RNA: Fluoride riboswitch aptamer (crcB RNA motif)
Organism: Butyricicoccus sp. TM10-16AC
RNA sequence: CUGCAACAGGGGAAUGAGGUUCUCCCUUGGACGAACGUCCUAAACCGCUUUCAAAGCUGAUGACUUCUGCGUACUA
Numbered sequence: 001c002u003g004c005a006a007c008a009g010g011g012g013a014a015u016g017a018g019g020u021u022c023u024c025c026c027u028u029g030g031a032c033g034a035a036c037g038u039c040c041u042a043a044a045c046c047g048c049u050u051u052c053a054a055a056g057c058u059g060a061u062g063a064c065u066u067c068u069g070c071g072u073a074c075u076a
Stems, first nucleotide, its partner, number of pairs: 010026004016067006047057003